[Rfam]
Small nucleolar RNA SNORA68: a 132-nucleotide RNA sequence from Crypturellus undulatus.
The literature on the family includes a 1997 paper in Genes Dev by Ganot et al., "The family of box ACA small nucleolar RNAs is defined by an evolutionarily conserved secondary structure and ubiquitous sequence elements essential for RNA accumulation".
Rfam links the family to the GO terms RNA processing and nucleolus.
Rfam's curators write: U68 is a member of the H/ACA class of small nucleolar RNAs (snoRNAs) which act as guides in the the modification of uridines to pseudouridines.
Rfam 15.1 lists 1,079 matches to the family in 643 species.
The family's RNA type in Rfam is H/ACA-box small nucleolar RNA.
The organism belongs to Crypturellus, within Eukaryota.
RNA sequence: AGUGCACACAAAAACCCAAAGAAUGUUGUUCCUAGUAAUGAUGUUCUUGUCAUGUGUGCAAAUAUUAAAUGUAUCUUGUCGCCUUUCAGCUGCUGAAGUGCUACUGAAAGUGAAACUUAAGGUCCUACAUGU
Numbered sequence: 001a002g003u004g005c006a007c008a009c010a011a012a013a014a015c016c017c018a019a020a021g022a023a024u025g026u027u028g029u030u031c032c033u034a035g036u037a038a039u040g041a042u043g044u045u046c047u048u049g050u051c052a053u054g055u056g057u058g059c060a061a062a063u064a065u066u067a068a069a070u071g072u073a074u075c076u077u078g079u080c081g082c083c084u085u086u087c088a089g090c091u092g093c094u095g096a097a098g099u100g101c102u103a104c105u106g107a108a109a110g111u112g113a114a115a116c117u118u119a120a121g122g123u124c125c126u127a128c129a130u131g132u
Base pairs, nucleotide, nucleotide: 003060004059005058006057007056008055009054021046022045023044024043025042026041027040028039029038030037071125073123074122075121076120077119083110084109085108086107087106088105089104092101093100